[Rfam]
The record is a 77-nucleotide sequence from Alligator sinensis, which matches "Mammalian CPEB3 ribozyme" in Rfam.

RNA sequence: AGCUGCAAGUUUGAGGCCAUAGCAGAAGUGCUUAUGGCAUAGCCCUGUCGCAUUCUAGCAAAUCUGCAAAUAUUGCU
Numbered sequence: 001a002g003c004u005g006c007a008a009g010u011u012u013g014a015g016g017c018c019a020u021a022g023c024a025g026a027a028g029u030g031c032u033u034a035u036g037g038c039a040u041a042g043c044c045c046u047g048u049c050g051c052a053u054u055c056u057a058g059c060a061a062a063u064c065u066g067c068a069a070a071u072a073u074u075g076c077u
Stems, first nucleotide, its partner, number of pairs: 013045001015044003021077005027071001028040003049066002052063003
Notes
For this family Rfam cites "A genomewide search for ribozymes reveals an HDV-like sequence in the human CPEB3 gene" (Salehi-Ashtiani et al., Science, 2006). Pairs were carried over by alignment from the consensus structure, which is taken from published work. It scores 38 bits against the family's covariance model. Taxonomically the source falls in Alligator (Eukaryota, Gnathostomata, Archelosauria, Alligatoridae).